[Rfam]
The family of this 76-nucleotide RNA sequence from Ameiurus melas is "mir-7563 microRNA precursor family". The source organism's lineage runs through Eukaryota, Vertebrata, Teleostomi, Siluroidei and Ameiurus. It scores 81 bits against the family's covariance model. Gene Ontology terms of the family: miRNA-mediated post-transcriptional gene silencing and RISC complex. The base pairs follow the family's consensus structure, which was predicted with RNAalifold.
RNA sequence: ACUGCAUACUCACCUACUAUAUAGAAGGUGAUAUACAUGUAUUUCGGCUACUAUAUAGUAGGUAAGUAUACGGUUU
Numbered sequence: 001a002c003u004g005c006a007u008a009c010u011c012a013c014c015u016a017c018u019a020u021a022u023a024g025a026a027g028g029u030g031a032u033a034u035a036c037a038u039g040u041a042u043u044u045c046g047g048c049u050a051c052u053a054u055a056u057a058g059u060a061g062g063u064a065a066g067u068a069u070a071c072g073g074u075u076u
Base pairs, nucleotide, nucleotide: 001074002073003072004071006069007068008067009066010065012063013062014061015060017058018057019056020055021054022053023052024051026049027048029046030045031044033042034041035040